[Rfam]
RNA sequence: CUCGGCCUGUGGUACAGACCUAUUUAUGCACGACAUCUUGAGUAAAGUGGUUCAUAUUUAAAGCGUUAUCGUUGAUAGCUCUUCACUGACGAAUUUCCUUCAUAGUGCCUCCAUAAGUAACGACUGAUAACCGGCUAUAACACGCCCAUGGCGGCAAAAUUUUUUAAUAAAGGAAAUACACAUGUCUAACAUGAUGAAAGGUCAAGUAAAGUGGUUCAACGAGUCUAAAGGCUUCGGUUUCAUCACUCCAGCUGAUGGCAGCAAAGACGUGUUCGUUCACUUCUCUGCUAUCCAAGAUCAAGGCUUCAAGACCCUGGCUGAAGGCCAGAAUGUACAGUUCUCUAUCGAGAACGGUGCUAAAGGUCCGUCUGCAGCAAACGUAACUGCAAUCUAAUUGGCCUUUGGCUGAUUAUAAAAAAACCCGCUAAGGCGGGUUUUUUACU
Numbered sequence: 001c002u003c004g005g006c007c008u009g010u011g012g013u014a015c016a017g018a019c020c021u022a023u024u025u026a027u028g029c030a031c032g033a034c035a036u037c038u039u040g041a042g043u044a045a046a047g048u049g050g051u052u053c054a055u056a057u058u059u060a061a062a063g064c065g066u067u068a069u070c071g072u073u074g075a076u077a078g079c080u081c082u083u084c085a086c087u088g089a090c091g092a093a094u095u096u097c098c099u100u101c102a103u104a105g106u107g108c109c110u111c112c113a114u115a116a117g118u119a120a121c122g123a124c125u126g127a128u129a130a131c132c133g134g135c136u137a138u139a140a141c142a143c144g145c146c147c148a149u150g151g152c153g154g155c156a157a158a159a160u161u162u163u164u165u166a167a168u169a170a171a172g173g174a175a176a177u178a179c180a181c182a183u184g185u186c187u188a189a190c191a192u193g194a195u196g197a198a199a200g201g202u203c204a205a206g207u208a209a210a211g212u213g214g215u216u217c218a219a220c221g222a223g224u225c226u227a228a229a230g231g232c233u234u235c236g237g238u239u240u241c242a243u244c245a246c247u248c249c250a251g252c253u254g255a256u257g258g259c260a261g262c263a264a265a266g267a268c269g270u271g272u273u274c275g276u277u278c279a280c281u282u283c284u285c286u287g288c289u290a291u292c293c294a295a296g297a298u299c300a301a302g303g304c305u306u307c308a309a310g311a312c313c314c315u316g317g318c319u320g321a322a323g324g325c326c327a328g329a330a331u332g333u334a335c336a337g338u339u340c341u342c343u344a345u346c347g348a349g350a351a352c353g354g355u356g357c358u359a360a361a362g363g364u365c366c367g368u369c370u371g372c373a374g375c376a377a378a379c380g381u382a383a384c385u386g387c388a389a390u391c392u393a394a395u396u397g398g399c400c401u402u403u404g405g406c407u408g409a410u411u412a413u414a415a416a417a418a419a420a421c422c423c424g425c426u427a428a429g430g431c432g433g434g435u436u437u438u439u440u441a442c443u
Base pairs, nucleotide, nucleotide: 004020005019007017008016009015027250028249030247047240050239052237053236057229058228059227065225067223070221071220072219073218074217075216077215079214080213084184085183087182088181097173098172099171100170102168103167105131106130144155145154146153186201187200253347254346255345256344257343258342266274267273279333280332282330284329285328286327287326288324289323292317293316294315296313352367353366354365356364357363358362370388371387372386373385374384393411394410395409397407398406399405400404415440416439417438418437419436420435421434422433423432424431425430
The family of this 443-nucleotide RNA sequence from Yersinia pestis is "cspA thermoregulator".
By type it is an RNA thermoregulator.
NCBI's taxonomy places the organism under Bacteria, Gammaproteobacteria, Yersiniaceae, Yersinia pestis subsp. pestis, Yersinia pestis subsp. pestis bv. Orientalis.
For this family Rfam cites "The cspA mRNA is a thermosensor that modulates translation of the cold-shock protein CspA" (Giuliodori et al., Mol Cell, 2010).
It is one of the family's seed sequences.